[Rfam]
RNA sequence: CAGCGAGCUUUGCCCAAUGAAAUACUUAUCGAAUGUCAUGAGUUCAAAUAAGUGUUCAUCGGACAGAGGUUGCUG
Numbered sequence: 001c002a003g004c005g006a007g008c009u010u011u012g013c014c015c016a017a018u019g020a021a022a023u024a025c026u027u028a029u030c031g032a033a034u035g036u037c038a039u040g041a042g043u044u045c046a047a048a049u050a051a052g053u054g055u056u057c058a059u060c061g062g063a064c065a066g067a068g069g070u071u072g073c074u075g
Stems, first nucleotide, its partner, number of pairs: 002074005008068005014062002017059005023054007032044003